[Rfam]
RNA sequence: CUUGAUCGAGCCCAGCCACAACGGCCGCCCCGCAGGCCGCCCCUGCCCAUACGUCGACAGCAGCGCCUGCGCCUC
Dot-bracket structure: ..............(((.....))).....(((....((...(((.(.(....).).)))...))...)))....
Overview: ASpks TB sRNA: a 75-nucleotide RNA from Peterkaempfera bronchialis. Rfam classes the family as an antisense RNA. The family has 77 seed sequences and 9,052 matches in Rfam 15.1.